A member of the RNA family "SAM riboswitch aptamer (S box leader)" from Egibacter rhizosphaerae, 105 nucleotides long.
RNA sequence: GUGCCAUCGAGAGCGGCUGAGGGAACCGGCCCGUCGACGCCGCCGCAACCACGCGCGCCGCGCGCAGGUGCGAACUCCGGCCCCACGCGAGGGGGUAGAUGGCUC
Dot-bracket structure: (.((((((....(((((...(((..[[[[)))......)))))((((.((.(((.......)))..))))))...(]]]]((((......))))..))))))).)

Rfam's curators write: The SAM riboswitch is found upstream of a number of genes which code for proteins involved in methionine or cysteine biosynthesis in Gram-positive bacteria. Rfam links the family to the GO term regulation of gene expression.